The family of this 125-nucleotide RNA from Caballeronia glathei is "Burkholderia sRNA Bp1_Cand684_SIPHT".
Pairs were carried over by alignment from the consensus structure, which was predicted with RNAalifold.
The family's RNA type in Rfam is small RNA.
Nucleotides: 125
Stems, first nucleotide, its partner, number of pairs: 011087003015031006058078003109116002
Number, partner (000 for none) and nucleotide at each position: 001000a002000a003000g004000a005000a006000a007000g008000u009000g010000a011087c012086u013085g014000c015031u016030g017029c018028c019027c020026c021000g022000c023000a024000c025000a026020g027019g028018g029017g030016c031015g032000a033000a034000g035000c036000u037000a038000a039000u040000a041000a042000a043000c044000c045000a046000a047000u048000a049000u050000c051000a052000a053000a054000u055000c056000a057000a058078g059077u060076u061000u062000c063000a064000u065000a066000g067000a068000a069000g070000c071000g072000c073000a074000a075000a076060a077059a078058c079000a080000u081000c082000a083000a084000a085013c086012g087011g088000u089000u090000c091000u092000a093000a094000a095000a096000a097000c098000g099000c100000c101000a102000a103000a104000c105000c106000c107000a108000a109116g110115c111000g112000c113000c114000a115110g116109c117000g118000a119000c120000a121000u122000c123000c124000c125000u